[Rfam]
Small nucleolar RNA snoR77: a 125-nucleotide RNA from Phtheirospermum japonicum.
RNA sequence: AGGCAACCCCAUUUUUUCUUUGAAGUAGAGAUGGGUGGUGUUAAUCUGCUCAUAAAUCAAUGAGCUUUUGAUCUUCUGACUUGCUGAUUGUUUCUUGAAACUGGUCUAGUAUGCUUAAGGAGAUU
Numbered sequence: 001a002g003g004c005a006a007c008c009c010c011a012u013u014u015u016u017u018c019u020u021u022g023a024a025g026u027a028g029a030g031a032u033g034g035g036u037g038g039u040g041u042u043a044a045u046c047u048g049c050u051c052a053u054a055a056a057u058c059a060a061u062g063a064g065c066u067u068u069u070g071a072u073c074u075u076c077u078g079a080c081u082u083g084c085u086g087a088u089u090g091u092u093u094c095u096u097g098a099a100a101c102u103g104g105u106c107u108a109g110u111a112u113g114c115u116u117a118a119g120g121a122g123a124u125u
Stems, first nucleotide, its partner, number of pairs: 002042004007038002009035002013031005065119003070114001078106004083101001085099001
The match comes from Rfam's covariance-model search (80 bits). Its family is annotated with RNA processing and nucleolus in the Gene Ontology. NCBI's taxonomy places the organism under Eukaryota, Streptophytina, asterids, lamiids, Phtheirospermum. Rfam classes the family as an H/ACA-box small nucleolar RNA. A reference for the family is Marker et al. (2002), "Experimental RNomics: identification of 140 candidates for small non-messenger RNAs in the plant Arabidopsis thaliana", Curr Biol.